[Rfam]
RNA sequence: GUGACAGAAGAGAGUGAGCACACGCAGGCAAUUGUAUGAAGGGCAUGCCUUUGCGGGUGCGUGCUCACUUCUCUUCUGUCAG
Numbered sequence: 001g002u003g004a005c006a007g008a009a010g011a012g013a014g015u016g017a018g019c020a021c022a023c024g025c026a027g028g029c030a031a032u033u034g035u036a037u038g039a040a041g042g043g044c045a046u047g048c049c050u051u052u053g054c055g056g057g058u059g060c061g062u063g064c065u066c067a068c069u070u071c072u073c074u075u076c077u078g079u080c081a082g
Stems, first nucleotide, its partner, number of pairs: 002081011013069009023059003